The record is a 76-nucleotide RNA from Diaphorina citri, which matches "mir-1000 microRNA precursor family" in Rfam.

[Rfam]
RNA sequence: CAUUAUGAUAUUGUCCUGUCACAGCAGUAGUGCCAUUUUCAAAAGUUAUACUGCUGUCUCGGGACAGUGCAUGGCG
Number, nucleotide and partner (000 for none) at each position: 001c000002a000003u074004u073005a072006u071007g000008a000009u000010a000011u000012u066013g065014u064015c063016c062017u061018g060019u000020c000021a000022c056023a055024g054025c053026a052027g051028u050029a049030g000031u000032g000033c000034c000035a000036u000037u000038u000039u000040c000041a000042a000043a000044a000045g000046u000047u000048a000049u029050a028051c027052u026053g025054c024055u023056g022057u000058c000059u000060c018061g017062g016063g015064a014065c013066a012067g000068u000069g000070c000071a006072u005073g004074g003075c000076g000